RNA sequence: CCCCAGGUGGUGUUGGCACUUAGCCUGGGCUGUGAGUUGGAGAAAUCCCCAACUCACAGCCCAGGCUAAGUGCCAACACCAGCUGGGA
Dot-bracket structure: ..((.(.(((.((((((((((((((.((((((((((((((........)))))))))))))).)))))))))))))).))).).))..
Numbered sequence: 001c002c003c004c005a006g007g008u009g010g011u012g013u014u015g016g017c018a019c020u021u022a023g024c025c026u027g028g029g030c031u032g033u034g035a036g037u038u039g040g041a042g043a044a045a046u047c048c049c050c051a052a053c054u055c056a057c058a059g060c061c062c063a064g065g066c067u068a069a070g071u072g073c074c075a076a077c078a079c080c081a082g083c084u085g086g087g088a
Stems, first nucleotide, its partner, number of pairs: 003086002006083001008081003012077014027062014
Shown here is an 88-nucleotide RNA from Sphenodon punctatus, a member of the family "mir-9193 microRNA precursor family".